[Rfam]
RNA: TPP riboswitch aptamer (THI element)
RNA sequence: GCCUUCUUGUCGGAGUGCCGCCCGCCGGGCGGCUGAGAUUGCGAAAGCAAAAUCCGUAGAACCUGUCGGGGUAAUGCCUGCGUAGGAAACAAAACCUCCCCGCCC
Numbered sequence: 001g002c003c004u005u006c007u008u009g010u011c012g013g014a015g016u017g018c019c020g021c022c023c024g025c026c027g028g029g030c031g032g033c034u035g036a037g038a039u040u041g042c043g044a045a046a047g048c049a050a051a052a053u054c055c056g057u058a059g060a061a062c063c064u065g066u067c068g069g070g071g072u073a074a075u076g077c078c079u080g081c082g083u084a085g086g087a088a089a090c091a092a093a094a095c096c097u098c099c100c101c102g103c104c105c
Stems, first nucleotide, its partner, number of pairs: 007092004011056004016050001017033005040049003062086004067080004